Annotation
Burkholderia RNA 7 (anti-hemB): a 90-nucleotide RNA sequence from Ramlibacter cellulosilyticus. Rfam's curators write: This RNA motif was identified by computational search in b-proteobacteria Burkholderia. A reference for the family is Weinberg et al. (2007), "Identification of 22 candidate structured RNAs in bacteria using the CMfinder comparative genomics pipeline", Nucleic Acids Res.
[Rfam]
RNA sequence: CCCCCGCUUUUCCUCCCUGAGCGGGCGCCUUGAUGUGUGACAGCAAAAAGGCUUCCAACCCCGGUUCCCAUGGAACCGGGGUUUUUUUCU
Numbered sequence: 001c002c003c004c005c006g007c008u009u010u011u012c013c014u015c016c017c018u019g020a021g022c023g024g025g026c027g028c029c030u031u032g033a034u035g036u037g038u039g040a041c042a043g044c045a046a047a048a049a050g051g052c053u054u055c056c057a058a059c060c061c062c063g064g065u066u067c068c069c070a071u072g073g074a075a076c077c078g079g080g081g082u083u084u085u086u087u088u089c090u
Stems, first nucleotide, its partner, number of pairs: 003025006027052005059081008